The record is a 119-nucleotide RNA from Rhodospirillum rubrum, which matches "rpsB sRNA" in Rfam. On this family, see Meyer et al., BMC Genomics 2009: "Identification of candidate structured RNAs in the marine organism 'Candidatus Pelagibacter ubique'".
RNA sequence: CGCACGCGGGAUUCGCGGCCGUCCGGAAAAUAUCCGGCGCGGCCGUUCCGGUGUCGAAGGGCUUUCUGGCCUUUUGACUCAACUGUCCCGCGGAGGUUCAACCGGAAAAGGAAAGACGC
Numbered sequence: 001c002g003c004a005c006g007c008g009g010g011a012u013u014c015g016c017g018g019c020c021g022u023c024c025g026g027a028a029a030a031u032a033u034c035c036g037g038c039g040c041g042g043c044c045g046u047u048c049c050g051g052u053g054u055c056g057a058a059g060g061g062c063u064u065u066c067u068g069g070c071c072u073u074u075u076g077a078c079u080c081a082a083c084u085g086u087c088c089c090g091c092g093g094a095g096g097u098u099c100a101a102c103c104g105g106a107a108a109a110g111g112a113a114a115g116a117c118g119c
Base pairs, nucleotide, nucleotide: 001095003093005092006091007090008089009088010087011086024036025035026034053078054077055076056075057074058073059072060071061070062069063068